[Rfam]
RNA sequence: GCCCUGUGGUUACUGGAGACUGUGACAUUGUACAGUACUGCAGUUAGGUAAAAUGGGCCGAAAUGAAUACUGUGAUUUUUGCAUGGUGUCUGUAAUGAUUUGGCAGCCUCCAUAGCCCGGUCACAGUUACACUA
Numbered sequence: 001g002c003c004c005u006g007u008g009g010u011u012a013c014u015g016g017a018g019a020c021u022g023u024g025a026c027a028u029u030g031u032a033c034a035g036u037a038c039u040g041c042a043g044u045u046a047g048g049u050a051a052a053a054u055g056g057g058c059c060g061a062a063a064u065g066a067a068u069a070c071u072g073u074g075a076u077u078u079u080u081g082c083a084u085g086g087u088g089u090c091u092g093u094a095a096u097g098a099u100u101u102g103g104c105a106g107c108c109u110c111c112a113u114a115g116c117c118c119g120g121u122c123a124c125a126g127u128u129a130c131a132c133u134a
Stems, first nucleotide, its partner, number of pairs: 001058004007050002010046001012044004017039001019036005070126001072124006081116002083113004088108001090106004
A member of the RNA family "Small nucleolar RNA SNORA84" from Geotrypetes seraphini, 134 nucleotides long. The family's consensus secondary structure was predicted with WAR. Lineage of the source: Eukaryota > Eumetazoa > Craniata > Sarcopterygii > Geotrypetes. A search with the family's covariance model found it, with a score of 106 bits.